[Rfam]
RNA sequence: UUGUUAAAUAAUGAUGUGACAAACAGAAUGUCACGUCAUCACUUCUUAUCACGGAUAUCUCAUUGUCACGUUAUCACCUUUAAUGAUGUGUUUGUGAUUGGACAUGAUGACGUGACAUUUUGUCUGUCACGUCAUUAUUUAACGGAA
Numbered sequence: 001u002u003g004u005u006a007a008a009u010a011a012u013g014a015u016g017u018g019a020c021a022a023a024c025a026g027a028a029u030g031u032c033a034c035g036u037c038a039u040c041a042c043u044u045c046u047u048a049u050c051a052c053g054g055a056u057a058u059c060u061c062a063u064u065g066u067c068a069c070g071u072u073a074u075c076a077c078c079u080u081u082a083a084u085g086a087u088g089u090g091u092u093u094g095u096g097a098u099u100g101g102a103c104a105u106g107a108u109g110a111c112g113u114g115a116c117a118u119u120u121u122g123u124c125u126g127u128c129a130c131g132u133c134a135u136u137a138u139u140u141a142a143c144g145g146a147a
Stems, first nucleotide, its partner, number of pairs: 001145021023123019044102003048098005054092005070084004
Rfam assigns this 147-nucleotide sequence from Glycine max to the family "MIR4371 microRNA precursor family".
It scores 128 bits against the family's covariance model.
Clan: MIR4387 microRNA precursor clan.
Pairs were carried over by alignment from the consensus structure, which was predicted with RNAalifold.